This 388-nucleotide RNA sequence from Bacillus taeanensis belongs to the Rfam family "Bacterial RNase P class B". Lineage of the source: Bacteria > Bacillati > Bacilli > Caryophanales > Bacillus. The literature on the family includes a 1999 paper in Nucleic Acids Res by Brown, "The Ribonuclease P Database". Ribonuclease P (RNase P) is a ubiquitous endoribonuclease, found in archaea, bacteria and eukarya as well as chloroplasts and mitochondria. Its best characterised activity is the generation of mature 5'-ends of tRNAs by cleaving the 5'-leader elements of precursor-tRNAs. Cellular RNase Ps are ribonucleoproteins. RNA from bacterial RNase Ps retains its catalytic activity in the absence of the protein subunit, i.e. it is a ribozyme. Isolated eukaryotic and archaeal RNase P RNA has not been shown to retain its catalytic function, but is still essential for the catalytic activity of the holoenzyme. Although the archaeal and eukaryotic holoenzyme s have a much greater protein content than the bacterial ones, the RNA cores from all the three lineages are homologous -- helices corresponding to P1, P2, P3, P4, and P10/11 are common to all cellular RNase P RNAs. Yet, there is considerable sequence variation, particularly among the eukaryotic RNAs.

[Rfam]
RNA sequence: ACGUUCAGGUAAUCGCUGCAUCGCUUCGAUGUAGAGGAAAGUCCAUGCUCGCACGAUCUGAGAUGAUCGUAGUGUUCGUGCUCAGUGAAAAAAUAAACUGAGGUAGUUCGGCUAAUGCUGAACUAACGGCAGGGAAAGCACCUACGUCUUUUAGAUAUGGUGUGAAUACCUUGAAAGUGCCACAGUGACGUAGUUCUCUUGGAAACGAGAGAAGUGGAACGAGGUAAACCCCACGAGCGAGAAACCCAAACUAUGGUAGGGGAACCUUCUCAACGGAAUUCAACGGAGAGAAGGACGAAUGACGAUUCAUUCGUAGAUAAAUGAUUGCCGCCGGAGUACGAGGUUCGCACCGUUUGCAGUACGAAGGUACAAAACAUGGCUUAUCGAA
Numbered sequence: 001a002c003g004u005u006c007a008g009g010u011a012a013u014c015g016c017u018g019c020a021u022c023g024c025u026u027c028g029a030u031g032u033a034g035a036g037g038a039a040a041g042u043c044c045a046u047g048c049u050c051g052c053a054c055g056a057u058c059u060g061a062g063a064u065g066a067u068c069g070u071a072g073u074g075u076u077c078g079u080g081c082u083c084a085g086u087g088a089a090a091a092a093a094u095a096a097a098c099u100g101a102g103g104u105a106g107u108u109c110g111g112c113u114a115a116u117g118c119u120g121a122a123c124u125a126a127c128g129g130c131a132g133g134g135a136a137a138g139c140a141c142c143u144a145c146g147u148c149u150u151u152u153a154g155a156u157a158u159g160g161u162g163u164g165a166a167u168a169c170c171u172u173g174a175a176a177g178u179g180c181c182a183c184a185g186u187g188a189c190g191u192a193g194u195u196c197u198c199u200u201g202g203a204a205a206c207g208a209g210a211g212a213a214g215u216g217g218a219a220c221g222a223g224g225u226a227a228a229c230c231c232c233a234c235g236a237g238c239g240a241g242a243a244a245c246c247c248a249a250a251c252u253a254u255g256g257u258a259g260g261g262g263a264a265c266c267u268u269c270u271c272a273a274c275g276g277a278a279u280u281c282a283a284c285g286g287a288g289a290g291a292a293g294g295a296c297g298a299a300u301g302a303c304g305a306u307u308c309a310u311u312c313g314u315a316g317a318u319a320a321a322u323g324a325u326u327g328c329c330g331c332c333g334g335a336g337u338a339c340g341a342g343g344u345u346c347g348c349a350c351c352g353u354u355u356g357c358a359g360u361a362c363g364a365a366g367g368u369a370c371a372a373a374a375c376a377u378g379g380c381u382u383a384u385c386g387a388a
Stems, first nucleotide, its partner, number of pairs: 004388003007384001008329007016034006039382003043379005048241005053070006076236005081102006103127001104125009128231002131171003139162004146156003177229002179225003194213008245261003265294007295314008331367002336362004